Rfam assigns this 139-nucleotide RNA sequence from Buceros rhinoceros to the family "Small nucleolar RNA SNORA8". Rfam describes the family as follows. ACA8 is a member of the H/ACA class of snoRNA that guide the sites of modification of uridines to pseudouridines.
RNA sequence: UGCACUGUAUGGUAUCUGCACCCAGCAGCAGGCUCCUGGUGGGGUGUUCAAAACCCAGUGCUACAGCAGGUCAGCGUUUGGCAUCGUUGGUUUGCGUUCUGCUGUGUCUGUUGAACCUGGUAUUCUUGCUGAUACAGUC
Numbered sequence: 001u002g003c004a005c006u007g008u009a010u011g012g013u014a015u016c017u018g019c020a021c022c023c024a025g026c027a028g029c030a031g032g033c034u035c036c037u038g039g040u041g042g043g044g045u046g047u048u049c050a051a052a053a054c055c056c057a058g059u060g061c062u063a064c065a066g067c068a069g070g071u072c073a074g075c076g077u078u079u080g081g082c083a084u085c086g087u088u089g090g091u092u093u094g095c096g097u098u099c100u101g102c103u104g105u106g107u108c109u110g111u112u113g114a115a116c117c118u119g120g121u122a123u124u125c126u127u128g129c130u131g132a133u134a135c136a137g138u139c
Base pairs, nucleotide, nucleotide: 002061003060004059005058006057007056017052018047019046020045021044022043023042024040026038027037028036064128065127066126068124069123071120072119073118074117080108081107082106083105084104